A member of the RNA family "6A RNA", 52 nucleotides long.
RNA sequence: AGAUAUGCUCAUAGUGUAGUGAGCAGUGUAAUCAAAAGAAAUACACGGGGUU
Dot-bracket structure: .....((((((..[[[[..)))))).................]]]]......
Rfam classes the family as a small RNA. The sequence is in the family's curated seed alignment.